The family of this 244-nucleotide sequence from Streptomyces sp. Ru72 is "Streptomyces sRNA 4677". A reference for the family is Hindra et al. (2014), "Complex intra-operonic dynamics mediated by a small RNA in Streptomyces coelicolor", PLoS One. Taxonomically the source falls in Streptomyces (Bacteria, Bacillati, Actinomycetota, Streptomycetaceae). Rfam 15.1 lists 563 matches to the family in 285 species. The match comes from Rfam's covariance-model search (174 bits). Rfam describes the family as follows. Located in the intergenic region between anti-sigma factor SCO4677 gene and a putative regulatory protein gene SCO4676. scr4677 expression requires the SCO4677 activity and scr4677 sRNA itself seem to affect the levels of the SCO4676-associated transcripts. Pairs were carried over by alignment from the consensus structure.
[Rfam]
RNA sequence: GGCUGCGGUGGCGAAGGCGAUCUCCACUCAAAGAACUCGGGGACGAAAUGACCCCGCCAAGCCCCACCGAUCCGCCCGGGGCCCCCGCUCACUCGGGCGGGUGAACAUCCCCGGCUCGGCUGGAUUCCGAGGCCCCCGACUCCCCUACUCUCAGCGCAAACAACCGCACACAUGCAUCGGCCCCCGGCCGGGAGUAGCGAUCCCGAUCGAGGGCCUGGCCACCGAGGAAGGUAAGGACUUCCCG
Numbered sequence: 001g002g003c004u005g006c007g008g009u010g011g012c013g014a015a016g017g018c019g020a021u022c023u024c025c026a027c028u029c030a031a032a033g034a035a036c037u038c039g040g041g042g043a044c045g046a047a048a049u050g051a052c053c054c055c056g057c058c059a060a061g062c063c064c065c066a067c068c069g070a071u072c073c074g075c076c077c078g079g080g081g082c083c084c085c086c087g088c089u090c091a092c093u094c095g096g097g098c099g100g101g102u103g104a105a106c107a108u109c110c111c112c113g114g115c116u117c118g119g120c121u122g123g124a125u126u127c128c129g130a131g132g133c134c135c136c137c138g139a140c141u142c143c144c145c146u147a148c149u150c151u152c153a154g155c156g157c158a159a160a161c162a163a164c165c166g167c168a169c170a171c172a173u174g175c176a177u178c179g180g181c182c183c184c185c186g187g188c189c190g191g192g193a194g195u196a197g198c199g200a201u202c203c204c205g206a207u208c209g210a211g212g213g214c215c216u217g218g219c220c221a222c223c224g225a226g227g228a229a230g231g232u233a234a235g236g237a238c239u240u241c242c243c244g
Stems, first nucleotide, its partner, number of pairs: 007223004016076004089104006119155005179215005185209002190204004226242005